Record summary:
The record is a 107-nucleotide RNA from Sulfidibacter corallicola, which matches "SAM riboswitch aptamer (S box leader)" in Rfam. Rfam 15.1 lists 9,625 matches to the family in 4,158 species. The base pairs follow the family's consensus structure, which is taken from published work.
RNA sequence: UCGUUAUCCAGAAAGGUGGAGGGAUCAGGCCCUGUGAAGCCUUAGCAACCGGUGGAACGCCACGUCAGGUGCUAAUUCCUGCCCGUCAGAGAACGGGAAAGAUGAGA
Numbered sequence: 001u002c003g004u005u006a007u008c009c010a011g012a013a014a015g016g017u018g019g020a021g022g023g024a025u026c027a028g029g030c031c032c033u034g035u036g037a038a039g040c041c042u043u044a045g046c047a048a049c050c051g052g053u054g055g056a057a058c059g060c061c062a063c064g065u066c067a068g069g070u071g072c073u074a075a076u077u078c079c080u081g082c083c084c085g086u087c088a089g090a091g092a093a094c095g096g097g098a099a100a101g102a103u104g105a106g107a
Base pairs, nucleotide, nucleotide: 004105005104006103007102008101013043014042015041016040017039021032022031023030026081027080028079029078044073045072046071047070049069050068051066052065053064054063077100082097083096084095085094086093